Rfam assigns this 86-nucleotide RNA from Prolemur simus to the family "Y RNA".
[Rfam]
RNA sequence: GGCUGGUCCAAGUGCAGUGGUGUUACAACUAAUUGAUCACAACCAGUUCCUUUUCCACUCCUACUGCUUCACUUGUCCAGCCUAAA
Number, nucleotide and partner (000 for none) at each position: 001g082002g081003c080004u079005g078006g077007u000008c075009c000010a074011a073012g000013u000014g070015c000016a065017g064018u063019g062020g061021u000022g060023u000024u000025a000026c000027a048028a047029c046030u000031a000032a000033u000034u000035g000036a000037u000038c000039a000040c000041a000042a000043c000044c000045a000046g029047u028048u027049c000050c000051u000052u000053u000054u000055c000056c000057a000058c000059u000060c022061c020062u019063a018064c017065u016066g000067c000068u000069u000070c014071a000072c000073u011074u010075g008076u000077c006078c005079a004080g003081c002082c001083u000084a000085a000086a000

NCBI's taxonomy places the organism under Eukaryota, Eumetazoa, Chordata, Craniata, Prolemur. Rfam describes the family as follows. Y RNAs are components of the Ro ribonucleoprotein particle (Ro RNP), in association with Ro60 and La proteins. Rfam classes the family as a non-coding RNA gene.